mraW RNA: a 104-nucleotide RNA sequence from Corynebacterium uropygiale. It is annotated as a cis-regulatory element. NCBI's taxonomy places the organism under Bacteria, Actinomycetes, Mycobacteriales, Corynebacteriaceae, Corynebacterium.
[Rfam]
RNA sequence: CUCCGGAGUGCGUAUAUGGACUCUGUCUGAGGUUGACGCUCUGGUGUACUUCCCCGAUAUCAGAGCGUCCCUCGGACAGGGCCCUAUAUGCGCCCCGCGCAUUG
Number, nucleotide and partner (000 for none) at each position: 001c000002u000003c000004c000005g000006g000007a000008g000009u000010g091011c090012g089013u088014a087015u086016a085017u000018g084019g083020a000021c081022u080023c079024u078025g077026u076027c075028u074029g073030a072031g071032g070033u000034u000035g069036a068037c067038g066039c065040u064041c063042u062043g061044g060045u059046g058047u057048a000049c000050u000051u000052c000053c000054c000055c000056g000057a047058u046059a045060u044061c043062a042063g041064a040065g039066c038067g037068u036069c035070c032071c031072u030073c029074g028075g027076a026077c025078a024079g023080g022081g021082c000083c019084c018085u016086a015087u014088a013089u012090g011091c010092g000093c000094c000095c000096c000097g000098c000099g000100c000101a000102u000103u000104g000